[Rfam]
The record is a 176-nucleotide sequence from Oryza glumipatula, which matches "MIR807 microRNA precursor family" in Rfam. The base pairs follow the family's consensus structure, which was predicted with WAR. Lineage of the source: Eukaryota > Embryophyta > Mesangiospermae > Poales > Oryza. Rfam links the family to the GO terms miRNA-mediated post-transcriptional gene silencing and RISC complex.

RNA sequence: AACCACACUAUCGAUAAAUGGAUUCACCCGUGAGAUGACGUGGUUAUUCCAUCUAGGAUGAGAACGUGGCAUCCUAUUAAUUUUCGUGCGAUGGCUAGUAAUAGAUGCCAUAUCCUCGUCUUAGGUGAAACAACCACGUCAUUUUGCGGGUGAAUCCAUUCAUUGAUAGUGUGGUC
Numbered sequence: 001a002a003c004c005a006c007a008c009u010a011u012c013g014a015u016a017a018a019u020g021g022a023u024u025c026a027c028c029c030g031u032g033a034g035a036u037g038a039c040g041u042g043g044u045u046a047u048u049c050c051a052u053c054u055a056g057g058a059u060g061a062g063a064a065c066g067u068g069g070c071a072u073c074c075u076a077u078u079a080a081u082u083u084u085c086g087u088g089c090g091a092u093g094g095c096u097a098g099u100a101a102u103a104g105a106u107g108c109c110a111u112a113u114c115c116u117c118g119u120c121u122u123a124g125g126u127g128a129a130a131c132a133a134c135c136a137c138g139u140c141a142u143u144u145u146g147c148g149g150g151u152g153a154a155u156c157c158a159u160u161c162a163u164u165g166a167u168a169g170u171g172u173g174g175u176c
Stems, first nucleotide, its partner, number of pairs: 002175006009168007017160003021156008030147004035142005041136005047130002051126002054123002057120002064113001069108005075103005087097001